Shown here is a 115-nucleotide RNA sequence from Sinorhizobium sp. BG8, a member of the family "rpsB sRNA". It is annotated as a small RNA. NCBI's taxonomy places the organism under Bacteria, Pseudomonadati, Pseudomonadota, Rhizobiaceae, Sinorhizobium.

[Rfam]
RNA sequence: CACACGUGAGGCAUGGGAUGUUCCGGGAGAAAUCCGGAUCGUUCCGCCCGGUGGCAGGGCCGUAUGGGUUCUGCUGUUCGCCUUGCGGAGGUUCAACCGGAAAAGGAGAAAAAGG
Numbered sequence: 001c002a003c004a005c006g007u008g009a010g011g012c013a014u015g016g017g018a019u020g021u022u023c024c025g026g027g028a029g030a031a032a033u034c035c036g037g038a039u040c041g042u043u044c045c046g047c048c049c050g051g052u053g054g055c056a057g058g059g060c061c062g063u064a065u066g067g068g069u070u071c072u073g074c075u076g077u078u079c080g081c082c083u084u085g086c087g088g089a090g091g092u093u094c095a096a097c098c099g100g101a102a103a104a105g106g107a108g109a110a111a112a113a114g115g
Stems, first nucleotide, its partner, number of pairs: 001090001003088001005087007015045002023037002026035001053075009